[Rfam]
RNA: ZMP/ZTP riboswitch aptamer (pfl RNA motif)
RNA sequence: GAUUCCUGGUGUAACUGGCGGAUUUGUGGAAACGAACCACAGGGGAGCACCGGGAAAUGAAAUAGUCGACCGCCUGGGCUGAGCAA
Numbered sequence: 001g002a003u004u005c006c007u008g009g010u011g012u013a014a015c016u017g018g019c020g021g022a023u024u025u026g027u028g029g030a031a032a033c034g035a036a037c038c039a040c041a042g043g044g045g046a047g048c049a050c051c052g053g054g055a056a057a058u059g060a061a062a063u064a065g066u067c068g069a070c071c072g073c074c075u076g077g078g079c080u081g082a083g084c085a086a
Base pairs, nucleotide, nucleotide: 003056004055005054006053007052008051009050010049011048012047015044016043017074018073019072020071021070026040027039028038029037063081064080065079066078067077